[Rfam]
RNA sequence: CAAUUGAACAGACGGGAGCUUUUGUAAAAGGCUGAGAGGAAGGUAAGACCUUCGACCGAGAACCUGAUUUGGAUAAUGCCAACGUAGGGAUGCCCAUUUAGUCAUGU
Numbered sequence: 001c002a003a004u005u006g007a008a009c010a011g012a013c014g015g016g017a018g019c020u021u022u023u024g025u026a027a028a029a030g031g032c033u034g035a036g037a038g039g040a041a042g043g044u045a046a047g048a049c050c051u052u053c054g055a056c057c058g059a060g061a062a063c064c065u066g067a068u069u070u071g072g073a074u075a076a077u078g079c080c081a082a083c084g085u086a087g088g089g090a091u092g093c094c095c096a097u098u099u100a101g102u103c104a105u106g107u
Base pairs, nucleotide, nucleotide: 006095009092010091014057015056018032019031020030021029022028039053040052041051042050043049063088064087065086066085069082070081071080072079
Shown here is a 107-nucleotide sequence from Butyrivibrio fibrisolvens, a member of the family "TPP riboswitch aptamer (THI element)". The base pairs follow the family's consensus structure, which is taken from published work. It scores 60 bits against the family's covariance model.